[Rfam]
RNA: THF-II riboswitch (folE RNA)
RNA sequence: CCGUUCAACUCGUUCCUGCCCUGACAGGAACUACGGGAG
Numbered sequence: 001c002c003g004u005u006c007a008a009c010u011c012g013u014u015c016c017u018g019c020c021c022u023g024a025c026a027g028g029a030a031c032u033a034c035g036g037g038a039g
Stems, first nucleotide, its partner, number of pairs: 001036004012031007